[Rfam]
RNA sequence: CCGUGAUGCCGGGCCCCUCUGGCGGUUAACACCGCGAUGUCGGAAUCACAGU
Numbered sequence: 001c002c003g004u005g006a007u008g009c010c011g012g013g014c015c016c017c018u019c020u021g022g023c024g025g026u027u028a029a030c031a032c033c034g035c036g037a038u039g040u041c042g043g044a045a046u047c048a049c050a051g052u
Stems, first nucleotide, its partner, number of pairs: 006046002009043004022035005

Annotation
The record is a 52-nucleotide RNA, which matches "terC RNA" in Rfam. The family has 129 seed sequences and 1,112 matches in Rfam 15.1.